RNA sequence: UUGUAUUUACUGAUAGACCUUAAAUAACUUGCUGUUGUUCUUUUUGUUUGCAUUAGGAUGCAAAGAAAAAAAAAACUCUGCACUUUCUUUGUCGUAGCCCAGAUUGAAUAAGGGAAUAUAUUU
Numbered sequence: 001u002u003g004u005a006u007u008u009a010c011u012g013a014u015a016g017a018c019c020u021u022a023a024a025u026a027a028c029u030u031g032c033u034g035u036u037g038u039u040c041u042u043u044u045u046g047u048u049u050g051c052a053u054u055a056g057g058a059u060g061c062a063a064a065g066a067a068a069a070a071a072a073a074a075a076c077u078c079u080g081c082a083c084u085u086u087c088u089u090u091g092u093c094g095u096a097g098c099c100c101a102g103a104u105u106g107a108a109u110a111a112g113g114g115a116a117u118a119u120a121u122u123u
Stems, first nucleotide, its partner, number of pairs: 002062007011052002014050005023039006076114004083106001086103003
RNA: Small nucleolar RNA SNORA31